A member of the RNA family "mir-375 microRNA precursor family", 69 nucleotides long.
Gene Ontology terms of the family: RISC complex and miRNA-mediated post-transcriptional gene silencing.
RNA sequence: GAUAGAUCGAUCCUUACGAUCAACAAACUUGUUAUUCAAAAUAGUUUGUUCGUUCGGCUCGAGUUAUCA
Number, nucleotide and partner (000 for none) at each position: 001g068002a067003u066004a064005g000006a000007u000008c061009g060010a059011u000012c057013c056014u000015u000016a000017c052018g051019a000020u000021c000022a000023a049024c048025a047026a046027a000028c044029u043030u000031g000032u000033u000034a000035u000036u000037c000038a000039a000040a000041a000042u000043a029044g028045u000046u026047u025048g024049u023050u000051c018052g017053u000054u000055c000056g013057g012058c000059u010060c009061g008062a000063g000064u004065u000066a003067u002068c001069a000
It scores 51 bits against the family's covariance model. The base pairs follow the family's consensus structure, which was predicted with RNAalifold.